The family of this 231-nucleotide RNA sequence from Evansella cellulosilytica is "Group II catalytic intron D1-D4-6".
Group II introns are found in rRNA, tRNA and mRNA of organelles in fungi, plants and protists, and also in mRNA in bacteria.
The pairing is the family consensus, mapped onto this sequence.
[Rfam]
RNA sequence: GGAUUCCUGCCGAUGAAGAAUUAGCCAUUCAAUCGUAGCGAGUCUUGGAGGGUAAGGGGUAACUCUUACCUUUAAGCGUAGACAGUUAGGUGAUGGGCCGUAAGCCAAGGUUGAAGGGAUUGAGCCCCGUAAUCCUAAUAUAGGAGUGCUGAUGCACUGGACCGUGUAGAAAGCAACACUUCUCUUUCGUUUAUGGCAAGAAAGAAGAAGGCUCCUCGGGGUCAACUGCCC
Numbered sequence: 001g002g003a004u005u006c007c008u009g010c011c012g013a014u015g016a017a018g019a020a021u022u023a024g025c026c027a028u029u030c031a032a033u034c035g036u037a038g039c040g041a042g043u044c045u046u047g048g049a050g051g052g053u054a055a056g057g058g059g060u061a062a063c064u065c066u067u068a069c070c071u072u073u074a075a076g077c078g079u080a081g082a083c084a085g086u087u088a089g090g091u092g093a094u095g096g097g098c099c100g101u102a103a104g105c106c107a108a109g110g111u112u113g114a115a116g117g118g119a120u121u122g123a124g125c126c127c128c129g130u131a132a133u134c135c136u137a138a139u140a141u142a143g144g145a146g147u148g149c150u151g152a153u154g155c156a157c158u159g160g161a162c163c164g165u166g167u168a169g170a171a172a173g174c175a176a177c178a179c180u181u182c183u184c185u186u187u188c189g190u191u192u193a194u195g196g197c198a199a200g201a202a203a204g205a206a207g208a209a210g211g212c213u214c215c216u217c218g219g220g221g222u223c224a225a226c227u228g229c230c231c
Stems, first nucleotide, its partner, number of pairs: 011035004018030004022199001024197002038086002042083004046078002048073011121225001122223001124222006142216006148174003153168004179210005184204005